The record is a 94-nucleotide RNA sequence, which matches "Streptomyces RNA 3202" in Rfam.
Rfam's curators write: Identified by deep sequencing of transcriptome at the end of exponential growth phase. Appears smaller on northern blot than sequencing transcript. This indicates processing step. Streptomyces specific.
By type it is a small RNA.
The base pairs follow the family's consensus structure.
On this family, see Vockenhuber et al., RNA Biol 2011: "Deep sequencing-based identification of small non-coding RNAs in Streptomyces coelicolor".
RNA sequence: CCAAGUCCCGACGCACACCCCCCCCGGCGCCGGGACUCUCCCGAGCCGGACUUCGGCGCCCUCCCCCCCCUGGGUGCCGGGGUCCGGCUCUUUC
Dot-bracket structure: ....((((((.(((............))).))))))......((((((((((.((((((((..........)))))))).))))))))))....